[Rfam]
RNA sequence: CCGUCGGCCUCCCGCGACGCCAGGUCGAAAACUCCGCCAGGGCCGGAAGGCAGCAACGGUAUCGACUGAUGCGGGUGCCGGGACAAGCCGGCGGGGC
Numbered sequence: 001c002c003g004u005c006g007g008c009c010u011c012c013c014g015c016g017a018c019g020c021c022a023g024g025u026c027g028a029a030a031a032c033u034c035c036g037c038c039a040g041g042g043c044c045g046g047a048a049g050g051c052a053g054c055a056a057c058g059g060u061a062u063c064g065a066c067u068g069a070u071g072c073g074g075g076u077g078c079c080g081g082g083a084c085a086a087g088c089c090g091g092c093g094g095g096g097c
Stems, first nucleotide, its partner, number of pairs: 004091005010083005015075001018073003023067006034059003042051003
This 97-nucleotide RNA sequence from Arenimonas composti belongs to the Rfam family "Bacterial small signal recognition particle RNA". Rfam describes the family as follows. The signal recognition particle (SRP) is a universally conserved ribonucleoprotein involved in the co-translational targeting of proteins to membranes. Its Rfam clan is "SRP clan". Its family is annotated with SRP-dependent cotranslational protein targeting to membrane, signal sequence recognition and signal recognition particle, plasma membrane targeting in the Gene Ontology. It scores 65 bits against the family's covariance model. Lineage of the source: Bacteria > Pseudomonadota > Gammaproteobacteria > Lysobacteraceae > Arenimonas composti. The base pairs follow the family's consensus structure, which is taken from published work.